[Rfam]
RNA: small nucleolar RNA snoR114
RNA sequence: GAGCAGUGAUGAAAGCUGUGCCCAGGCGAUGGUAGGGUCUAUCGCAAGCAUCUGAUCACCAGAUGAUACGUGGCACUGCUGAGCUC
Number, nucleotide and partner (000 for none) at each position: 001g086002a085003g084004c083005a000006g000007u000008g000009a000010u000011g000012a000013a000014a000015g000016c000017u000018g000019u000020g000021c000022c000023c000024a000025g000026g000027c000028g000029a000030u000031g000032g000033u000034a000035g000036g000037g000038u000039c000040u000041a000042u000043c000044g000045c000046a000047a000048g000049c000050a000051u000052c000053u000054g000055a000056u000057c000058a000059c000060c000061a000062g000063a000064u000065g000066a000067u000068a000069c000070g000071u000072g000073g000074c000075a000076c000077u000078g000079c000080u000081g000082a000083g004084c003085u002086c001